[Rfam]
A member of the RNA family "LOOT RNA", 120 nucleotides long. Rfam classes the family as a small RNA.

RNA sequence: AGCCUAAACCUUUGGAAACAAAGGCAUGGUGAAAGAAAACUGCAACAGUAAUAAAGAACCCAUCAUAUGGGGCACUGUUGCAGUCAUAUCGGGAAACCGAUAUGGGGAGCGAAAGCUCUC
Numbered sequence: 001a002g003c004c005u006a007a008a009c010c011u012u013u014g015g016a017a018a019c020a021a022a023g024g025c026a027u028g029g030u031g032a033a034a035g036a037a038a039a040c041u042g043c044a045a046c047a048g049u050a051a052u053a054a055a056g057a058a059c060c061c062a063u064c065a066u067a068u069g070g071g072g073c074a075c076u077g078u079u080g081c082a083g084u085c086a087u088a089u090c091g092g093g094a095a096a097c098c099g100a101u102a103u104g105g106g107g108a109g110c111g112a113a114a115g116c117u118c119u120c
Stems, first nucleotide, its partner, number of pairs: 002030003009024006040083010059071005085104008105120006